[Rfam]
RNA sequence: UCCCUUCAACGCUGCGUUUCUAUGCUACGUACGGAGAGUCUGCGCAAGCAGUCUUUCAAUCUGGCAUAUGAGAAAUUCGGAGAAUCCGCUUCACUACCAGCUCGCCCGCCUCGCCUCGUGCGCGGCGGUGUCGACGCUCUGCCGGUGACGGCCUGGCGCCACCUUGCGUCUGCCAUUGGCAUCAGAAAAGCAGGGCCUGGGCUGUUGCAUUCGCUUGCGGGUGUUUCAGUUUCCAGGUUCCUCUGGGAGAGUCAUGGCGAAGCUUGUGAGCAACUUUAGUGCAAUACGCAGCGUGGUGCGUCCUGGCUUGCUGGGAGGCACCAUCCUUCGAUUCCGAUUACUCUGUUGGGGA
Numbered sequence: 001u002c003c004c005u006u007c008a009a010c011g012c013u014g015c016g017u018u019u020c021u022a023u024g025c026u027a028c029g030u031a032c033g034g035a036g037a038g039u040c041u042g043c044g045c046a047a048g049c050a051g052u053c054u055u056u057c058a059a060u061c062u063g064g065c066a067u068a069u070g071a072g073a074a075a076u077u078c079g080g081a082g083a084a085u086c087c088g089c090u091u092c093a094c095u096a097c098c099a100g101c102u103c104g105c106c107c108g109c110c111u112c113g114c115c116u117c118g119u120g121c122g123c124g125g126c127g128g129u130g131u132c133g134a135c136g137c138u139c140u141g142c143c144g145g146u147g148a149c150g151g152c153c154u155g156g157c158g159c160c161a162c163c164u165u166g167c168g169u170c171u172g173c174c175a176u177u178g179g180c181a182u183c184a185g186a187a188a189a190g191c192a193g194g195g196c197c198u199g200g201g202c203u204g205u206u207g208c209a210u211u212c213g214c215u216u217g218c219g220g221g222u223g224u225u226u227c228a229g230u231u232u233c234c235a236g237g238u239u240c241c242u243c244u245g246g247g248a249g250a251g252u253c254a255u256g257g258c259g260a261a262g263c264u265u266g267u268g269a270g271c272a273a274c275u276u277u278a279g280u281g282c283a284a285u286a287c288g289c290a291g292c293g294u295g296g297u298g299c300g301u302c303c304u305g306g307c308u309u310g311c312u313g314g315g316a317g318g319c320a321c322c323a324u325c326c327u328u329c330g331a332u333u334c335c336g337a338u339u340a341c342u343c344u345g346u347u348g349g350g351g352a
Stems, first nucleotide, its partner, number of pairs: 001352004009344001013291001018286001021068004034057005078336005089262003141152004155170005174257001177254004193242003293324007
RNA: Nuclear RNase P
Organism: Cercophora newfieldiana